[Rfam]
Source information:
Shown here is a 100-nucleotide sequence from Marinibacterium profundimaris, a member of the family "TPP riboswitch aptamer (THI element)". Pairs were carried over by alignment from the consensus structure, which is taken from published work. The organism belongs to Marinibacterium, within Bacteria.
RNA sequence: GAUUCCACCUCGGGGUGCCCGUCAGGGCUGAGAUGCGUCUCGCGAACCCGUUGAACCUGACCCGGCUCGUACCGGCGGAGGGAAGGUCACGCAAUCCACU
Numbered sequence: 001g002a003u004u005c006c007a008c009c010u011c012g013g014g015g016u017g018c019c020c021g022u023c024a025g026g027g028c029u030g031a032g033a034u035g036c037g038u039c040u041c042g043c044g045a046a047c048c049c050g051u052u053g054a055a056c057c058u059g060a061c062c063c064g065g066c067u068c069g070u071a072c073c074g075g076c077g078g079a080g081g082g083a084a085g086g087u088c089a090c091g092c093a094a095u096c097c098a099c100u
Stems, first nucleotide, its partner, number of pairs: 007087004011050004016044001017028004035043003056081003062075004